Small nucleolar RNA SNORD83: a 78-nucleotide RNA sequence from Pangasianodon hypophthalmus.
Its family is annotated with nucleolus and RNA processing in the Gene Ontology.
The organism belongs to Pangasianodon, within Eukaryota.
A search with the family's covariance model found it, with a score of 47 bits.
[Rfam]
RNA sequence: GCCAUAUGAUGCCAUAUAGAUGACAUUAGCAUUUUUGUGUAAAGAUGACCACCUAUCUAUCACCCAAGACUGAUGGCU
Number, nucleotide and partner (000 for none) at each position: 001g077002c076003c075004a074005u000006a000007u000008g000009a000010u000011g000012c000013c000014a000015u000016a000017u000018a000019g000020a000021u000022g000023a000024c000025a000026u000027u000028a000029g040030c039031a038032u037033u000034u000035u000036u000037g032038u031039g030040u029041a000042a000043a000044g000045a000046u000047g000048a000049c000050c000051a000052c000053c000054u000055a000056u000057c000058u000059a000060u000061c000062a000063c000064c000065c000066a000067a000068g000069a000070c000071u000072g000073a000074u004075g003076g002077c001078u000